[Rfam]
RNA sequence: CCAGGAAUGUUCUUUCCUGACCCUACCUGAGGCGCGUCUGGGGUAACCCGGGGGUGUGAGAGCUAUCAGGGACAAUGGUUGAUUACUUAGGGUAAAUAAAGGCUAUGGUAAACGAAAGUGAAGAUAUAUCGAGGCUCGGUAAAAGGUG
Numbered sequence: 001c002c003a004g005g006a007a008u009g010u011u012c013u014u015u016c017c018u019g020a021c022c023c024u025a026c027c028u029g030a031g032g033c034g035c036g037u038c039u040g041g042g043g044u045a046a047c048c049c050g051g052g053g054g055u056g057u058g059a060g061a062g063c064u065a066u067c068a069g070g071g072a073c074a075a076u077g078g079u080u081g082a083u084u085a086c087u088u089a090g091g092g093u094a095a096a097u098a099a100a101g102g103c104u105a106u107g108g109u110a111a112a113c114g115a116a117a118g119u120g121a122a123g124a125u126a127u128a129u130c131g132a133g134g135c136u137c138g139g140u141a142a143a144a145g146g147u148g
Base pairs, nucleotide, nucleotide: 002019003018004017005016006015007014027069028068029067030066032057033056034055035054037052038051039050040049041048042047087099088098089097112119113118127141128140129139130138131137
Rfam assigns this 148-nucleotide RNA from Diaporthe ampelina to the family "Group II catalytic intron D1-D4-7". Pairs were carried over by alignment from the consensus structure. About the family: Group II introns are found in rRNA, tRNA and mRNA of organelles in fungi, plants and protists, and also in mRNA in bacteria. The source organism's lineage runs through Eukaryota, Ascomycota, saccharomyceta, sordariomyceta and Diaporthe.